Annotation
Rfam assigns this 76-nucleotide RNA sequence from Rhodococcus sp. RD6.2 to the family "Actino-pnp RNA". The organism belongs to Rhodococcus, within Bacteria. The family's RNA type in Rfam is cis-regulatory element. Pairs were carried over by alignment from the consensus structure, which is taken from published work. A search with the family's covariance model found it, with a score of 51 bits.
[Rfam]
RNA sequence: GUCGGUCCUCGGUAGUGGCCACUCGGACGAUCACCCACGAGGGGUGACCUGCGAUUGGCUUCGAUCGAUGGCCGCC
Numbered sequence: 001g002u003c004g005g006u007c008c009u010c011g012g013u014a015g016u017g018g019c020c021a022c023u024c025g026g027a028c029g030a031u032c033a034c035c036c037a038c039g040a041g042g043g044g045u046g047a048c049c050u051g052c053g054a055u056u057g058g059c060u061u062c063g064a065u066c067g068a069u070g071g072c073c074g075c076c
Stems, first nucleotide, its partner, number of pairs: 001076001003074005009068005017060005023054003027050001029048001